[Rfam]
RNA: TPP riboswitch aptamer (THI element)
Organism: Desulfitobacterium metallireducens
RNA sequence: UAACUAAAUAGAGGGAGCUUAAGGAAUUGAGCUGAGAGGGCAGUUGAGACCACUGCCGACCGUGAUACCUGAUCUGGAUAAUGCCAGCGGAGGGACAGUAAUAUUGGAGUAA
Numbered sequence: 001u002a003a004c005u006a007a008a009u010a011g012a013g014g015g016a017g018c019u020u021a022a023g024g025a026a027u028u029g030a031g032c033u034g035a036g037a038g039g040g041c042a043g044u045u046g047a048g049a050c051c052a053c054u055g056c057c058g059a060c061c062g063u064g065a066u067a068c069c070u071g072a073u074c075u076g077g078a079u080a081a082u083g084c085c086a087g088c089g090g091a092g093g094g095a096c097a098g099u100a101a102u103a104u105u106g107g108a109g110u111a112a
Stems, first nucleotide, its partner, number of pairs: 007099001009097001011063001013061002017032005039057005068093003074087004